[Rfam]
RNA sequence: GCGAUGAGCUGAUUUGUGUAAGUCGAAGGAUAAAUGCAAUACUUGUGAAUGUGAACACAAGCUUCUUCGCCACAAAUAAACGCGAGAGACGUCUGCAUGUUUGCAGGCGUU
Number, nucleotide and partner (000 for none) at each position: 001g000002c000003g000004a000005u000006g000007a000008g000009c000010u000011g000012a000013u000014u075015u074016g073017u072018g071019u000020a000021a000022g000023u000024c069025g068026a067027a066028g065029g064030a063031u000032a000033a000034a000035u000036g000037c000038a000039a000040u000041a000042c061043u060044u000045g058046u057047g056048a000049a000050u000051g000052u000053g000054a000055a000056c047057a046058c045059a000060a043061g042062c000063u030064u029065c028066u027067u026068c025069g024070c000071c018072a017073c016074a015075a014076a000077u000078a000079a000080a000081c000082g000083c000084g000085a000086g000087a000088g111089a110090c109091g108092u107093c106094u105095g104096c103097a000098u000099g000100u000101u000102u000103g096104c095105a094106g093107g092108c091109g090110u089111u088